[Rfam]
RNA sequence: GAAAACCGUGAGCUACAGUUACAGACUUGUAAUGACACCUGUGGAAAUGAUCUCAUGGUUAAAGAACAUCCUAGGGACUGUGUUGUU
Numbered sequence: 001g002a003a004a005a006c007c008g009u010g011a012g013c014u015a016c017a018g019u020u021a022c023a024g025a026c027u028u029g030u031a032a033u034g035a036c037a038c039c040u041g042u043g044g045a046a047a048u049g050a051u052c053u054c055a056u057g058g059u060u061a062a063a064g065a066a067c068a069u070c071c072u073a074g075g076g077a078c079u080g081u082g083u084u085g086u087u
Stems, first nucleotide, its partner, number of pairs: 002086001004084003
Background:
This 87-nucleotide RNA from Hordeum vulgare belongs to the Rfam family "Small nucleolar RNA SNORD25". Its family is annotated with RNA processing and nucleolus in the Gene Ontology. The family's RNA type in Rfam is C/D-box small nucleolar RNA. Lineage of the source: Eukaryota > Viridiplantae > Spermatophyta > Hordeum > Hordeum vulgare.